[Rfam]
RNA: Ruegeria cis52 sRNA
Organism: Planktotalea frisia
RNA sequence: UGCGCAGCGCGUGUUUGACCACGAUGUUCGGAAAGCUCACGCCUUUCAGACGCGCGGUGCGGAUGUAUUGCGCGGUCAUGACUUCGGCCAUCGAGGCGCGGGUCAUGCGCGCGAUAUAGCCCAUGCCGUAAAGUGAAAUGGUCAAAACGGGCAGGAAGAAGUUAUUGAAGGUUGCUUU
Dot-bracket structure: ....((...(((.((((..((......(.((......(.(((...(.(..(((((.((((((.....)))))).)......(((((.....)))))))))..).)...))).)......)).))).)).)).)))...))....((((.(((.(.((....)).).....)))).)))